[Rfam]
RNA: Hepatitis C virus stem-loop SL8670
RNA sequence: AGAGCGACGGAGUCCAGGAAGACGCUGCGGCCCUGCGAGCCUUCACGGAGGCUAUGACCAGGUAUUCCGCUCCUCCCGGGGACCCGCCUCAA
Number, nucleotide and partner (000 for none) at each position: 001a000002g000003a000004g000005c000006g087007a000008c000009g084010g083011a000012g000013u080014c079015c078016a000017g076018g075019a000020a000021g072022a000023c000024g000025c000026u000027g070028c069029g067030g066031c000032c062033c061034u060035g059036c000037g000038a053039g052040c051041c050042u049043u048044c000045a000046c000047g000048g043049a042050g041051g040052c039053u038054a000055u000056g000057a000058c000059c035060a034061g033062g032063u000064a000065u000066u030067c029068c000069g028070c027071u000072c021073c000074u000075c018076c017077c000078g015079g014080g013081g000082a000083c010084c009085c000086g000087c006088c000089u000090c000091a000092a000